[Rfam]
RNA sequence: GUACAACCAGCGUCCACAUUUCGCCUCUGGCAUUUCCCUGUACGUUAGCGAUGAUCCGCAAGGUAGCAAUGGGUGUACCACCUAUAGCGUCAGAGUUCCCUGAUCAGGAUGACGCUUAGGU
Numbered sequence: 001g002u003a004c005a006a007c008c009a010g011c012g013u014c015c016a017c018a019u020u021u022c023g024c025c026u027c028u029g030g031c032a033u034u035u036c037c038c039u040g041u042a043c044g045u046u047a048g049c050g051a052u053g054a055u056c057c058g059c060a061a062g063g064u065a066g067c068a069a070u071g072g073g074u075g076u077a078c079c080a081c082c083u084a085u086a087g088c089g090u091c092a093g094a095g096u097u098c099c100c101u102g103a104u105c106a107g108g109a110u111g112a113c114g115c116u117u118a119g120g121u
Base pairs, nucleotide, nucleotide: 001078002077003076004075005074007072008071009070010045011044012043013042015040016039023031024030025029048067049066056063057062081120082119083118084117086116087115088114089113090112091111092110099108100107101106
Dot-bracket structure: (((((.(((((((.((......(((...))).......)).))))..((......((....))..))..))).)))))..((((.(((((((......(((....))).))))))))))).
Overview
The record is a 121-nucleotide RNA sequence, which matches "Flavobacterium-1 RNA" in Rfam. Rfam's curators put it in the seed alignment.